[Rfam]
RNA: TPP riboswitch aptamer (THI element)
RNA sequence: UGAAUCUACUAGGGGCGCCGAUUUGGCUGAGAUGAACCCUUUGGACCUGAUCUAGGUAAUACUAGCGUAGGAAAGUAGUUUCGACUGACA
Numbered sequence: 001u002g003a004a005u006c007u008a009c010u011a012g013g014g015g016c017g018c019c020g021a022u023u024u025g026g027c028u029g030a031g032a033u034g035a036a037c038c039c040u041u042u043g044g045a046c047c048u049g050a051u052c053u054a055g056g057u058a059a060u061a062c063u064a065g066c067g068u069a070g071g072a073a074a075g076u077a078g079u080u081u082c083g084a085c086u087g088a089c090a
Base pairs, nucleotide, nucleotide: 006078007077008076009075010074011040012039013038014037016034017027018026019025020024046071047070048069049068052065053064054063055062